[Rfam]
RNA sequence: GCCUUCAAUGAUGAUCUAAAGCAAAACUUUCGUUCUUCUGAACAAUCCCCAUGUGGAGUAUGUGUUUGGAGACCUGAACUGAGAAGGG
Numbered sequence: 001g002c003c004u005u006c007a008a009u010g011a012u013g014a015u016c017u018a019a020a021g022c023a024a025a026a027c028u029u030u031c032g033u034u035c036u037u038c039u040g041a042a043c044a045a046u047c048c049c050c051a052u053g054u055g056g057a058g059u060a061u062g063u064g065u066u067u068g069g070a071g072a073c074c075u076g077a078a079c080u081g082a083g084a085a086g087g088g
Base pairs, nucleotide, nucleotide: 003086004085005084006083
Shown here is an 88-nucleotide sequence from Carnegiea gigantea, a member of the family "Small nucleolar RNA Z159/U59".
The base pairs follow the family's consensus structure, which was predicted with PFOLD.
It is annotated as a C/D-box small nucleolar RNA.
Clan: SNORD59 clan.